[Rfam]
RNA sequence: UGCUCAUCGAGAGGGGCAGAGGGACACGGCCCGUUGAAGCCCCGGCAACCCGUGACAGUUCGGACCUCCCGUUCUUCGCUGUCGCCACGGUGCUAAGUCCGUCCCGCACUGAGAGCCAGCUGCGGGGAAGAUGAGAA
Numbered sequence: 001u002g003c004u005c006a007u008c009g010a011g012a013g014g015g016g017c018a019g020a021g022g023g024a025c026a027c028g029g030c031c032c033g034u035u036g037a038a039g040c041c042c043c044g045g046c047a048a049c050c051c052g053u054g055a056c057a058g059u060u061c062g063g064a065c066c067u068c069c070c071g072u073u074c075u076u077c078g079c080u081g082u083c084g085c086c087a088c089g090g091u092g093c094u095a096a097g098u099c100c101g102u103c104c105c106g107c108a109c110u111g112a113g114a115g116c117c118a119g120c121u122g123c124g125g126g127g128a129a130g131a132u133g134a135g136a137a
Base pairs, nucleotide, nucleotide: 001137003135004134005133006132007131008130013043014042015041016040017039021032022031023030026102027101028100029099044094045093046092047091049090050089052085053084054083055082056081057080058079059078098129103126104125105124106123107122108121
RNA: SAM riboswitch aptamer (S box leader)
Organism: Nocardioidaceae bacterium